[Rfam]
RNA: L31-Firmicutes ribosomal protein leader
Organism: Lactobacillus gigeriorum
RNA sequence: CUAUGGUCUGAAAGAUGACUAUGGCAAAAGGAG
Numbered sequence: 001c002u003a004u005g006g007u008c009u010g011a012a013a014g015a016u017g018a019c020u021a022u023g024g025c026a027a028a029a030g031g032a033g
Stems, first nucleotide, its partner, number of pairs: 001024008